[Rfam]
The record is a 73-nucleotide RNA sequence from Megalodesulfovibrio gigas, which matches "tRNA" in Rfam. The organism belongs to Megalodesulfovibrio gigas, within Bacteria. Transfer RNA (tRNA) molecules are approximately 80 nucleotides in length. Its family is annotated with triplet codon-amino acid adaptor activity in the Gene Ontology.
RNA sequence: GGGCCAUUAGCUCAAUUGGCAGAGCAGUGGACUCUUAAUCCAUUGGUUCAAGGUUCGACUCCUUGAUGGCCCA
Numbered sequence: 001g002g003g004c005c006a007u008u009a010g011c012u013c014a015a016u017u018g019g020c021a022g023a024g025c026a027g028u029g030g031a032c033u034c035u036u037a038a039u040c041c042a043u044u045g046g047u048u049c050a051a052g053g054u055u056c057g058a059c060u061c062c063u064u065g066a067u068g069g070c071c072c073a
Stems, first nucleotide, its partner, number of pairs: 001072007010025004027043005049065005